Shown here is a 131-nucleotide RNA sequence from Ladona fulva, a member of the family "Small nucleolar RNA snoR639/H1".
Rfam links the family to the GO terms nucleolus and RNA processing.
snoR639 or snoH1 belongs to the H/ACA class of snoRNAs which are thought to guide the sites of modification of uridines to pseudouridines. snoH1 is found in an intron of the mfl gene in Drosophila.
[Rfam]
RNA sequence: ACCCCAUUCCUAUAAGCCGGCAAUGUGAUUUUUCUGUAAUCACAUUGUGUGCUAAGGGUGGGAAUAUUAAAUCUGAAAUGUGUAUGGCGUAUAGAGUACAUCUCUUACAGUCCAAAGGAAUUUCAGAGACA
Numbered sequence: 001a002c003c004c005c006a007u008u009c010c011u012a013u014a015a016g017c018c019g020g021c022a023a024u025g026u027g028a029u030u031u032u033u034c035u036g037u038a039a040u041c042a043c044a045u046u047g048u049g050u051g052c053u054a055a056g057g058g059u060g061g062g063a064a065u066a067u068u069a070a071a072u073c074u075g076a077a078a079u080g081u082g083u084a085u086g087g088c089g090u091a092u093a094g095a096g097u098a099c100a101u102c103u104c105u106u107a108c109a110g111u112c113c114a115a116a117g118g119a120a121u122u123u124c125a126g127a128g129a130c131a
Stems, first nucleotide, its partner, number of pairs: 020048008073126004085114003089108003094104003